[Rfam]
RNA sequence: UAAUCUGCUCAAUCUGCUUAUCUGAAUGUAUUUCUGCAGAAAUUUAGAAACAGCUGGCAAUAGUGAUGCCAUUUUAUGAGACUUAAAGACAACUGAGAUCAUUAGGGUCCCUGAAAAUGGCUACAAUA
Numbered sequence: 001u002a003a004u005c006u007g008c009u010c011a012a013u014c015u016g017c018u019u020a021u022c023u024g025a026a027u028g029u030a031u032u033u034c035u036g037c038a039g040a041a042a043u044u045u046a047g048a049a050a051c052a053g054c055u056g057g058c059a060a061u062a063g064u065g066a067u068g069c070c071a072u073u074u075u076a077u078g079a080g081a082c083u084u085a086a087a088g089a090c091a092a093c094u095g096a097g098a099u100c101a102u103u104a105g106g107g108u109c110c111c112u113g114a115a116a117a118u119g120g121c122u123a124c125a126a127u128a
Stems, first nucleotide, its partner, number of pairs: 013040005068121004080108001082106005088100002
This 128-nucleotide RNA sequence from Jaculus jaculus belongs to the Rfam family "Small nucleolar RNA SNORA33". It is annotated as an H/ACA-box small nucleolar RNA. Rfam's curators write: ACA33 is a member of the H/ACA class of snoRNA that guide the sites of modification of uridines to pseudouridines. The match comes from Rfam's covariance-model search (101 bits). Lineage of the source: Eukaryota > Euteleostomi > Amniota > Theria > Jaculus. Gene Ontology terms of the family: RNA processing and nucleolus.